Source information:
Shown here is a 444-nucleotide RNA sequence from Piaya cayana, a member of the family "Vertebrate telomerase RNA". Rfam classes the family as a non-coding RNA gene. NCBI's taxonomy places the organism under Eukaryota, Saurischia, Theropoda, Cuculiformes, Piaya. Rfam links the family to the GO terms telomerase activity, telomere maintenance via telomerase and telomerase catalytic core complex. Rfam describes the family as follows. Telomerase is a ribonucleoprotein reverse transcriptase that synthesises telomeric DNA. Telomerase RNAs differ greatly in sequence and structure between vertebrates, ciliates and yeasts, but they share a 5' pseudoknot structure close to the template sequence. Vertebrate telomerase RNAs have a 3' H/ACA snoRNA-like domain. The family's consensus secondary structure is taken from published work. The literature on the family includes a 2005 paper in J Biol Chem by Fragnet et al., "Comparative functional study of the viral telomerase RNA based on natural mutations". Rfam 15.1 lists 523 matches to the family in 477 species.
[Rfam]
RNA sequence: GCGUGGCAGGUGGGGAGGCCCCGGGGUCGCUAACCCUAAUGGUCGCCGCCGCGCUCCCCGCGCCCGUCCGCUGUUUUACUCGCUGACUUUCAGCGGACGAGGGGAGUAGCCCGGGAGGGAGGGAGGCGGGGGAAGGGAAAAGGGUUCCGCCGUCUUAAAAAAACGUCAGCGAGGCGGGGGCGCUCCUCACCCGGCCCUCCCUGGGGUCCCCCGGGCUCCCGCCGCCGCCGCCCCGUUGGCCGCGGUCGGCCGGCUCCGCCACUGCCGCCGCGAAGAGCUCGUCUCUGUCAGCCCCGGCGGCGGCGGGCGGCCAAGGGGCGGCCCCCCUCCUCCUUCGGCGCCGGGAGGGGACCCCAGCAGAGCAAUACGGGCGCGGCGCCGCCGGGCACCUCCGCCGCGCCUCCCUCAGCCGUGGGGAGCGCGACCGGCGCCGCCCCGACACGC
Numbered sequence: 001g002c003g004u005g006g007c008a009g010g011u012g013g014g015g016a017g018g019c020c021c022c023g024g025g026g027u028c029g030c031u032a033a034c035c036c037u038a039a040u041g042g043u044c045g046c047c048g049c050c051g052c053g054c055u056c057c058c059c060g061c062g063c064c065c066g067u068c069c070g071c072u073g074u075u076u077u078a079c080u081c082g083c084u085g086a087c088u089u090u091c092a093g094c095g096g097a098c099g100a101g102g103g104g105a106g107u108a109g110c111c112c113g114g115g116a117g118g119g120a121g122g123g124a125g126g127c128g129g130g131g132g133a134a135g136g137g138a139a140a141a142g143g144g145u146u147c148c149g150c151c152g153u154c155u156u157a158a159a160a161a162a163a164c165g166u167c168a169g170c171g172a173g174g175c176g177g178g179g180g181c182g183c184u185c186c187u188c189a190c191c192c193g194g195c196c197c198u199c200c201c202u203g204g205g206g207u208c209c210c211c212c213g214g215g216c217u218c219c220c221g222c223c224g225c226c227g228c229c230g231c232c233c234c235g236u237u238g239g240c241c242g243c244g245g246u247c248g249g250c251c252g253g254c255u256c257c258g259c260c261a262c263u264g265c266c267g268c269c270g271c272g273a274a275g276a277g278c279u280c281g282u283c284u285c286u287g288u289c290a291g292c293c294c295c296g297g298c299g300g301c302g303g304c305g306g307g308c309g310g311c312c313a314a315g316g317g318g319c320g321g322c323c324c325c326c327c328u329c330c331u332c333c334u335u336c337g338g339c340g341c342c343g344g345g346a347g348g349g350g351a352c353c354c355c356a357g358c359a360g361a362g363c364a365a366u367a368c369g370g371g372c373g374c375g376g377c378g379c380c381g382c383c384g385g386g387c388a389c390c391u392c393c394g395c396c397g398c399g400c401c402u403c404c405c406u407c408a409g410c411c412g413u414g415g416g417g418a419g420c421g422c423g424a425c426c427g428g429c430g431c432c433g434c435c436c437c438g439a440c441a442c443g444c
Stems, first nucleotide, its partner, number of pairs: 005197002007193001009191009019179005053107005065099009082170006088163003201357007213324003216320001217318004222305001225302001227301005241272005247267004252260003274286004369436004375432006396423004402417004